[Rfam]
RNA: RT-5 RNA
RNA sequence: CUGCGCCUGCGGAGGAUGCAGCACCGUCCAACUUCCCCGGCCUUGCAGGCGGCCGGACGGUGUACCGUCCCGUGAACCGCAAUUUUGCGGAUUCAAAAUCCUUCC
Numbered sequence: 001c002u003g004c005g006c007c008u009g010c011g012g013a014g015g016a017u018g019c020a021g022c023a024c025c026g027u028c029c030a031a032c033u034u035c036c037c038c039g040g041c042c043u044u045g046c047a048g049g050c051g052g053c054c055g056g057a058c059g060g061u062g063u064a065c066c067g068u069c070c071c072g073u074g075a076a077c078c079g080c081a082a083u084u085u086u087g088c089g090g091a092u093u094c095a096a097a098a099u100c101c102u103u104c105c
Stems, first nucleotide, its partner, number of pairs: 005050007014070002017067002021063008039054004077090005